RNA sequence: ACUGUGGAGAGUUAUAUACAAACGAUAGUAGCAGGAAUGCAAGGUCGGACUCGUUGAAACAGUAA
Dot-bracket structure: (((((...(((((.........(((.....(((....)))....))))))))......)))))..
RNA: RAGATH-18 RNA